This 72-nucleotide sequence from Novosphingobium kunmingense belongs to the Rfam family "terC RNA". Lineage of the source: Bacteria > Pseudomonadati > Alphaproteobacteria > Sphingomonadales > Novosphingobium. It is annotated as a cis-regulatory element.

[Rfam]
RNA sequence: UCGCGGGACCGGGCCCCUCUGGCGCGGCGUUUGCCCAACACGGGGAACGCAGCGUGAUGUCGGACCGCAUCG
Numbered sequence: 001u002c003g004c005g006g007g008a009c010c011g012g013g014c015c016c017c018u019c020u021g022g023c024g025c026g027g028c029g030u031u032u033g034c035c036c037a038a039c040a041c042g043g044g045g046a047a048c049g050c051a052g053c054g055u056g057a058u059g060u061c062g063g064a065c066c067g068c069a070u071c072g
Base pairs, nucleotide, nucleotide: 006066007065009063010062011061012060022055023054024053025052027050028049029048030047031046032045
Annotation
The family has 129 seed sequences and 1,112 matches in Rfam 15.1.